[Rfam]
RNA sequence: AGCCAGUUUGCAACUCGCGCUACUCCGGUACUUACGACUGUGCAUUCGAUAGUCAGGUACCUGAAGUAGCGCGCGCUGCGACUGGA
Dot-bracket structure: ........((((.(.(((((((.......((.(..((((...........)))).)))........))))))).).))))......
Source information:
Rfam assigns this 86-nucleotide RNA from Nasonia vitripennis to the family "mir-275 microRNA precursor family". The literature on the family includes a 2003 paper in Genome Biol by Lai et al., "Computational identification of Drosophila microRNA genes". Gene Ontology terms of the family: RISC complex and miRNA-mediated post-transcriptional gene silencing. Taxonomically the source falls in Nasonia (Eukaryota, Bilateria, Insecta, Pterygota). The family's consensus secondary structure was predicted with RNAalifold. Rfam's curators put it in the seed alignment.